This 76-nucleotide RNA sequence from Aphidius gifuensis belongs to the Rfam family "mir-965 microRNA precursor family". Rfam 15.1 lists 224 matches to the family in 178 species. Lineage of the source: Eukaryota > Eumetabola > Apocrita > Ichneumonoidea > Aphidius. Gene Ontology terms of the family: RISC complex and miRNA-mediated post-transcriptional gene silencing. On this family, see Huang et al., Bioorg Khim 2012: "The regulation of silkworm fibroin L chain production by miRNA-965 and miRNA-1926 in insect cells".
[Rfam]
RNA sequence: UUUUUGAGGGGAAAUGUUAUGGCGAUUAUGGUUUAUUAUAAAAAAGACAUAAGCGUAUAGCUUUUCCCCUUUGAAG
Dot-bracket structure: ..((.((.(((.((..(((((....(((((.................)))))...)))))..)).))).)).))..